[Rfam]
RNA sequence: CGGGAAGCUGAGGUUUUUCCUAUGUCUGAACAAUGACGCCAUCGUUUUCUGGGUCUUCGAAGCAGUUGCAAAGAAAUGCCCAGAUGGAGGACAGAGGGCCAAACCACCCCAGUGAAUUCAUAACAGGAGAUAACUUGCUUAAGACCUGACUGUUUUUAAAAGCGAAUGCCAGUGAGUGAAAUGCCAGCUCCCUGUACAGUUACUAGAGCUCCUGGGAAUGCAUGGCCAGUGACACAAGUGAGAAUUGGAUGUUAUGACCGUCCAGAAAAGACAAGAUGAGAAAGUGCAGUAUUGACUGUCUUCAAACGCACCUGUCCUUGCUCAAGUGCUGGGAUUGUGUGCCAACGGCUAUGAUAGAUAUGAAUAGAGCACGAGAUAAUGUGCUUACAGAAAGUUGGUUGAAUUGAAUGCAAUUAAUGUUUGGAGGCACUUAGUCUUCUAGUGUUUGAAUGUGGAUGGAAUUAAAGCUGGGUUUGUAGUGAGCCAUUAGGAUUAUGGCAAAUGUCUAGUGUACAGAAUUCAGUGUAGGCCGGGAGUUGAGACUGGUGUGUGUUUAGUGGAUUAUCUGAUCAGCACAUGUGUGACAGUGUUGAUCACAAGUCAUUGCCAGCUCUGUUCAUUUUCUUCCCUGGUCUAACUCAAUAAUUGCCAUCAUGAAAAUUCUGGGUGACUUUUGUGACUAAAGUCCCAUUGUAAGCCACAUUCUUUGUCCAGCAGUGCUCACUGACUGCUGAAAUAAAUGUUCAUUUGCAAC
Numbered sequence: 001c002g003g004g005a006a007g008c009u010g011a012g013g014u015u016u017u018u019c020c021u022a023u024g025u026c027u028g029a030a031c032a033a034u035g036a037c038g039c040c041a042u043c044g045u046u047u048u049c050u051g052g053g054u055c056u057u058c059g060a061a062g063c064a065g066u067u068g069c070a071a072a073g074a075a076a077u078g079c080c081c082a083g084a085u086g087g088a089g090g091a092c093a094g095a096g097g098g099c100c101a102a103a104c105c106a107c108c109c110c111a112g113u114g115a116a117u118u119c120a121u122a123a124c125a126g127g128a129g130a131u132a133a134c135u136u137g138c139u140u141a142a143g144a145c146c147u148g149a150c151u152g153u154u155u156u157u158a159a160a161a162g163c164g165a166a167u168g169c170c171a172g173u174g175a176g177u178g179a180a181a182u183g184c185c186a187g188c189u190c191c192c193u194g195u196a197c198a199g200u201u202a203c204u205a206g207a208g209c210u211c212c213u214g215g216g217a218a219u220g221c222a223u224g225g226c227c228a229g230u231g232a233c234a235c236a237a238g239u240g241a242g243a244a245u246u247g248g249a250u251g252u253u254a255u256g257a258c259c260g261u262c263c264a265g266a267a268a269a270g271a272c273a274a275g276a277u278g279a280g281a282a283a284g285u286g287c288a289g290u291a292u293u294g295a296c297u298g299u300c301u302u303c304a305a306a307c308g309c310a311c312c313u314g315u316c317c318u319u320g321c322u323c324a325a326g327u328g329c330u331g332g333g334a335u336u337g338u339g340u341g342c343c344a345a346c347g348g349c350u351a352u353g354a355u356a357g358a359u360a361u362g363a364a365u366a367g368a369g370c371a372c373g374a375g376a377u378a379a380u381g382u383g384c385u386u387a388c389a390g391a392a393a394g395u396u397g398g399u400u401g402a403a404u405u406g407a408a409u410g411c412a413a414u415u416a417a418u419g420u421u422u423g424g425a426g427g428c429a430c431u432u433a434g435u436c437u438u439c440u441a442g443u444g445u446u447u448g449a450a451u452g453u454g455g456a457u458g459g460a461a462u463u464a465a466a467g468c469u470g471g472g473u474u475u476g477u478a479g480u481g482a483g484c485c486a487u488u489a490g491g492a493u494u495a496u497g498g499c500a501a502a503u504g505u506c507u508a509g510u511g512u513a514c515a516g517a518a519u520u521c522a523g524u525g526u527a528g529g530c531c532g533g534g535a536g537u538u539g540a541g542a543c544u545g546g547u548g549u550g551u552g553u554u555u556a557g558u559g560g561a562u563u564a565u566c567u568g569a570u571c572a573g574c575a576c577a578u579g580u581g582u583g584a585c586a587g588u589g590u591u592g593a594u595c596a597c598a599a600g601u602c603a604u605u606g607c608c609a610g611c612u613c614u615g616u617u618c619a620u621u622u623u624c625u626u627c628c629c630u631g632g633u634c635u636a637a638c639u640c641a642a643u644a645a646u647u648g649c650c651a652u653c654a655u656g657a658a659a660a661u662u663c664u665g666g667g668u669g670a671c672u673u674u675u676g677u678g679a680c681u682a683a684a685g686u687c688c689c690a691u692u693g694u695a696a697g698c699c700a701c702a703u704u705c706u707u708u709g710u711c712c713a714g715c716a717g718u719g720c721u722c723a724c725u726g727a728c729u730g731c732u733g734a735a736a737u738a739a740a741u742g743u744u745c746a747u748u749u750g751c752a753a754c
Stems, first nucleotide, its partner, number of pairs: 002689004007063003010058004019053004024049001028047004033042003065680002069676005077669008089618008097608003101555004105550003109546005117180005123173002126170002135165006141156005185539008199221002203215004224531004232526004238514003244510010258459007266451001269447005276440001278438004284372004290366004295361001297360005302354003308340004314335005320329002341349003381430006388423004394418008467480004483499005516521001560602004567596010578586002620660005630651004691753007700743005707736002712733007
Record summary:
Shown here is a 754-nucleotide sequence from Cricetulus longicaudatus, a member of the family "growth arrested DNA-damage inducible gene 7". Lineage of the source: Eukaryota > Opisthokonta > Tetrapoda > Rodentia > Cricetulus.